Bacterial RNase P class A: a 403-nucleotide RNA sequence from Corynebacterium pyruviciproducens. NCBI's taxonomy places the organism under Bacteria, Actinomycetota, Actinomycetes, Corynebacteriaceae, Corynebacterium pyruviciproducens. For this family Rfam cites "Identification and characterization of small RNAs in Yersinia pestis" (Beauregard et al., RNA Biol, 2013). Rfam's curators write: Ribonuclease P (RNase P) is a ubiquitous endoribonuclease, found in archaea, bacteria and eukarya as well as chloroplasts and mitochondria. The match comes from Rfam's covariance-model search (259 bits).
[Rfam]
RNA sequence: UGAGUUGGCCAUGGCGAUCGCGUCGGCGUGAACGAGGAAGCACUGUUUUCCCACGCACGCUGCCGAGGAAAGUCUGGACUCCGCAGAGCACGGUGGUUGUUAACGGCAACCCGGGGUGACCCGAGGGAUAAGUGCCACAGAAACGAGACCGCCCGCGUUGUACGCGAGUAAGGGUGAAAAGGUGCGGUAAGAGCGCACCAGCACAGCAGGUGACUGUUGUGGCUUGGUAAACCCCACCGGGAGCAAGGCAAAAGGCCACACCUCCAUGGUGUGGCUGCGCAGGCGUACGAGGGCUGCUCGUCCGAGCCUGCGGGUAGCUGCUACAUAGAAGGCCGUCAGCAAUGGCGGUAGCGAGAUGGAUGGUCGCCACACGACAGAAUCCGGCUUACGGUCAACUCACUCG
Numbered sequence: 001u002g003a004g005u006u007g008g009c010c011a012u013g014g015c016g017a018u019c020g021c022g023u024c025g026g027c028g029u030g031a032a033c034g035a036g037g038a039a040g041c042a043c044u045g046u047u048u049u050c051c052c053a054c055g056c057a058c059g060c061u062g063c064c065g066a067g068g069a070a071a072g073u074c075u076g077g078a079c080u081c082c083g084c085a086g087a088g089c090a091c092g093g094u095g096g097u098u099g100u101u102a103a104c105g106g107c108a109a110c111c112c113g114g115g116g117u118g119a120c121c122c123g124a125g126g127g128a129u130a131a132g133u134g135c136c137a138c139a140g141a142a143a144c145g146a147g148a149c150c151g152c153c154c155g156c157g158u159u160g161u162a163c164g165c166g167a168g169u170a171a172g173g174g175u176g177a178a179a180a181g182g183u184g185c186g187g188u189a190a191g192a193g194c195g196c197a198c199c200a201g202c203a204c205a206g207c208a209g210g211u212g213a214c215u216g217u218u219g220u221g222g223c224u225u226g227g228u229a230a231a232c233c234c235c236a237c238c239g240g241g242a243g244c245a246a247g248g249c250a251a252a253a254g255g256c257c258a259c260a261c262c263u264c265c266a267u268g269g270u271g272u273g274g275c276u277g278c279g280c281a282g283g284c285g286u287a288c289g290a291g292g293g294c295u296g297c298u299c300g301u302c303c304g305a306g307c308c309u310g311c312g313g314g315u316a317g318c319u320g321c322u323a324c325a326u327a328g329a330a331g332g333c334c335g336u337c338a339g340c341a342a343u344g345g346c347g348g349u350a351g352c353g354a355g356a357u358g359g360a361u362g363g364u365c366g367c368c369a370c371a372c373g374a375c376a377g378a379a380u381c382c383g384g385c386u387u388a389c390g391g392u393c394a395a396c397u398c399a400c401u402c403g
Stems, first nucleotide, its partner, number of pairs: 001399010013368007021065002024062006070387003074384005079243004086299004091239005096110005111125001112123004126234002132232002134228003149173002151169002154166005181199006201223001202221008247319003279311006291303004332349007